[Rfam]
RNA sequence: UGAGUGUUAUGAUGAUGGAAUAACGUUUGUUUAUUCUUAGUCUAGCUCUGGUCUACCGCUAGGAAAUUUUUCCUAGCGG
Numbered sequence: 001u002g003a004g005u006g007u008u009a010u011g012a013u014g015a016u017g018g019a020a021u022a023a024c025g026u027u028u029g030u031u032u033a034u035u036c037u038u039a040g041u042c043u044a045g046c047u048c049u050g051g052u053c054u055a056c057c058g059c060u061a062g063g064a065a066a067u068u069u070u071u072c073c074u075a076g077c078g079g
Stems, first nucleotide, its partner, number of pairs: 002048004011042003017037006056079009
Shown here is a 79-nucleotide RNA from Streptococcus iniae, a member of the family "L17 ribosomal protein downstream element". By type it is a cis-regulatory element. Pairs were carried over by alignment from the consensus structure, which is taken from published work. It scores 79 bits against the family's covariance model. NCBI's taxonomy places the organism under Bacteria, Bacillota, Lactobacillales, Streptococcaceae, Streptococcus.